[Rfam]
RNA sequence: GAAAGGCUGCUUAAAAGGCAGCUGGAUGUAAACCAAUACAUCCCAGUUAAG
Numbered sequence: 001g002a003a004a005g006g007c008u009g010c011u012u013a014a015a016a017g018g019c020a021g022c023u024g025g026a027u028g029u030a031a032a033c034c035a036a037u038a039c040a041u042c043c044c045a046g047u048u049a050a051g
Stems, first nucleotide, its partner, number of pairs: 005023008024043007